Shown here is a 99-nucleotide RNA sequence from Centaurea solstitialis, a member of the family "Small nucleolar RNA R64/Z200 family".
RNA sequence: GUUUUGCGAUGAUGAAAUAUGAAUAAUUCACAUGUCAGACUUCGGAGGUUUUGUAAUUCAAAAUCAAUGAGAAUGAAUUUCAUAUUUACUGAGUAGAAA
Number, nucleotide and partner (000 for none) at each position: 001g000002u098003u097004u096005u095006g094007c093008g000009a000010u000011g000012a000013u000014g000015a000016a000017a000018u000019a000020u000021g000022a000023a000024u000025a000026a000027u000028u000029c000030a000031c000032a000033u000034g000035u000036c000037a000038g000039a000040c000041u000042u000043c000044g000045g000046a000047g065048g064049u063050u062051u061052u060053g059054u000055a000056a000057u000058u000059c053060a052061a051062a050063a049064u048065c047066a000067a000068u000069g000070a000071g000072a000073a000074u000075g000076a000077a000078u000079u000080u000081c000082a000083u000084a000085u000086u000087u000088a000089c000090u000091g000092a000093g007094u006095a005096g004097a003098a002099a000

Rfam classes the family as a C/D-box small nucleolar RNA. The match comes from Rfam's covariance-model search (72 bits). Gene Ontology terms of the family: nucleolus and RNA processing. Lineage of the source: Eukaryota > Streptophytina > Asterales > Carduoideae > Centaurea.